[Rfam]
RNA sequence: AUACCUCUUAAAAUCUACUAAUAAAAUUCAAUUUGUUCUUAUCAGUUUAAUCACUGAUACGUCCUUGAUGUGAGGACCAAUGCAUUAAACGCAUUUUUGGUGCUGGGAGAGGGCCUUGGGGCUUGCUCCAGCACCUCCAUGCAUUGACCCAGUAUUGCAGUGCCUCCGGGCCUGAUGCCUGCUCC
Number, nucleotide and partner (000 for none) at each position: 001a000002u000003a000004c000005c000006u000007c000008u021009u020010a019011a000012a000013a000014u000015c000016u000017a000018c000019u010020a009021a008022u000023a000024a000025a000026a000027u000028u000029c000030a000031a000032u000033u000034u000035g000036u000037u000038c000039u000040u059041a058042u057043c056044a055045g054046u000047u000048u000049a000050a000051u000052c000053a000054c045055u044056g043057a042058u041059a040060c000061g077062u076063c075064c074065u073066u072067g071068a000069u000070g000071u067072g066073a065074g064075g063076a062077c061078c000079a000080a000081u000082g000083c000084a000085u000086u000087a000088a000089a000090c000091g000092c000093a000094u000095u000096u000097u000098u000099g000100g000101u000102g000103c000104u000105g000106g138107g137108a136109g135110a000111g000112g132113g000114c000115c000116u000117u000118g129119g128120g127121g126122c000123u000124u000125g000126c121127u120128c119129c118130a000131g000132c112133a000134c000135c109136u108137c107138c106139a000140u000141g178142c177143a176144u175145u174146g173147a000148c170149c169150c168151a000152g166153u000154a000155u000156u000157g000158c000159a000160g000161u000162g000163c000164c000165u000166c152167c000168g150169g149170g148171c000172c000173u146174g145175a144176u143177g142178c141179c000180u000181g000182c000183u000184c000185c000

Description:
The family of this 185-nucleotide RNA from Alligator sinensis is "U2 spliceosomal RNA". By type it is a spliceosomal small nuclear RNA. Clan: U2 clan. NCBI's taxonomy places the organism under Eukaryota, Bilateria, Teleostomi, Archosauria, Alligator. A search with the family's covariance model found it, with a score of 93 bits.